[Rfam]
RNA sequence: ACUGUGGAGAGCUAUACCAAACCGUAGUAGACAGAUUGAAUAGCAAUCGUCAAGGCGGGGUUCGUUGAAGCAGUAA
Numbered sequence: 001a002c003u004g005u006g007g008a009g010a011g012c013u014a015u016a017c018c019a020a021a022c023c024g025u026a027g028u029a030g031a032c033a034g035a036u037u038g039a040a041u042a043g044c045a046a047u048c049g050u051c052a053a054g055g056c057g058g059g060g061u062u063c064g065u066u067g068a069a070g071c072a073g074u075a076a
Stems, first nucleotide, its partner, number of pairs: 001074005009063005022058003030051003034048005
The record is a 76-nucleotide RNA from Peptoclostridium acidaminophilum, which matches "RAGATH-18 RNA" in Rfam. A search with the family's covariance model found it, with a score of 64 bits. NCBI's taxonomy places the organism under Bacteria, Bacillati, Clostridia, Peptoclostridium, Peptoclostridium acidaminophilum.